The family of this 198-nucleotide sequence from Kluyvera cryocrescens is "Lysine riboswitch aptamer". The base pairs follow the family's consensus structure, which is taken from published work. Rfam describes the family as follows. Riboswitches are metabolite binding domains within certain messenger RNAs that serve as precision sensors for their corresponding targets. The match comes from Rfam's covariance-model search (96 bits).
[Rfam]
RNA sequence: CAGGCCAGAAGAGGCGCGUUGCCCAGGUAAACGGUGUUUGAGGAACCAGUCCUGUGAAAACAUCUGAAGGGGAGCAACGCCGAGAUGACUGAACUACCGGUUACGUUCACCAUCGGCUACAGGGGCUGAAUCCCCUGGGUUGUCACCAGAAACGUUCGCAGUCGCACGUUUCGCAAGUGGUGGAGCACUUCUGGGUGA
Numbered sequence: 001c002a003g004g005c006c007a008g009a010a011g012a013g014g015c016g017c018g019u020u021g022c023c024c025a026g027g028u029a030a031a032c033g034g035u036g037u038u039u040g041a042g043g044a045a046c047c048a049g050u051c052c053u054g055u056g057a058a059a060a061c062a063u064c065u066g067a068a069g070g071g072g073a074g075c076a077a078c079g080c081c082g083a084g085a086u087g088a089c090u091g092a093a094c095u096a097c098c099g100g101u102u103a104c105g106u107u108c109a110c111c112a113u114c115g116g117c118u119a120c121a122g123g124g125g126c127u128g129a130a131u132c133c134c135c136u137g138g139g140u141u142g143u144c145a146c147c148a149g150a151a152a153c154g155u156u157c158g159c160a161g162u163c164g165c166a167c168g169u170u171u172c173g174c175a176a177g178u179g180g181u182g183g184a185g186c187a188c189u190u191c192u193g194g195g196u197g198a
Stems, first nucleotide, its partner, number of pairs: 006193006016080007024072001033064007084114004090109005115141004120137006143183006